[Rfam]
RNA sequence: CUAAUACCAAACCCUUUCUCCACCUCCACGUGGUAACCGCUGGGAGCUCUUUCGUAACGAAACGCUGCAGACGGAGAAGG
Numbered sequence: 001c002u003a004a005u006a007c008c009a010a011a012c013c014c015u016u017u018c019u020c021c022a023c024c025u026c027c028a029c030g031u032g033g034u035a036a037c038c039g040c041u042g043g044g045a046g047c048u049c050u051u052u053c054g055u056a057a058c059g060a061a062a063c064g065c066u067g068c069a070g071a072c073g074g075a076g077a078a079g080g
Stems, first nucleotide, its partner, number of pairs: 013080005019074002022034003046066001048064001050062005
Dot-bracket structure: ............(((((.((.(((.......)))...........(.(.(((((...))))).).)......)).)))))
The family of this 80-nucleotide sequence from Hermetia illucens is "drz-agam-1 ribozyme". Its family is annotated with catalytic activity in the Gene Ontology. The base pairs follow the family's consensus structure, which is taken from published work. On this family, see Webb et al., Science 2009: "Widespread occurrence of self-cleaving ribozymes".